[Rfam]
RNA sequence: GGGUGUUUGGCAAAUCCAUGUCAAACAGGCUUAUCAGUUGGUCGGGCCGCCAACU
Numbered sequence: 001g002g003g004u005g006u007u008u009g010g011c012a013a014a015u016c017c018a019u020g021u022c023a024a025a026c027a028g029g030c031u032u033a034u035c036a037g038u039u040g041g042u043c044g045g046g047c048c049g050c051c052a053a054c055u
Stems, first nucleotide, its partner, number of pairs: 005026008036055007
Notes:
Shown here is a 55-nucleotide RNA sequence from Attibartonella tamiae, a member of the family "nhaA-I RNA". The family's consensus secondary structure is taken from published work. It is annotated as a riboswitch.